[Rfam]
RNA sequence: AGCGGCGAGGAUGAUGAUUCAAUUAGAUGUGCGAAUGGUUUCAUUAUGAGCUUACAAACUUAAUUUGGCAAUUAUUAAUCUGACUUCGCCGUC
Numbered sequence: 001a002g003c004g005g006c007g008a009g010g011a012u013g014a015u016g017a018u019u020c021a022a023u024u025a026g027a028u029g030u031g032c033g034a035a036u037g038g039u040u041u042c043a044u045u046a047u048g049a050g051c052u053u054a055c056a057a058a059c060u061u062a063a064u065u066u067g068g069c070a071a072u073u074a075u076u077a078a079u080c081u082g083a084c085u086u087c088g089c090c091g092u093c
Stems, first nucleotide, its partner, number of pairs: 002092009
The family of this 93-nucleotide sequence from Brassica rapa is "Small nucleolar RNA Z266". On this family, see Chen et al., Nucleic Acids Res 2003: "The high diversity of snoRNAs in plants: identification and comparative study of 120 snoRNA genes from Oryza sativa". Taxonomically the source falls in Brassica rapa (Eukaryota, Streptophytina, Mesangiospermae, malvids). The base pairs follow the family's consensus structure, which was predicted with PFOLD. The sequence is in the family's curated seed alignment.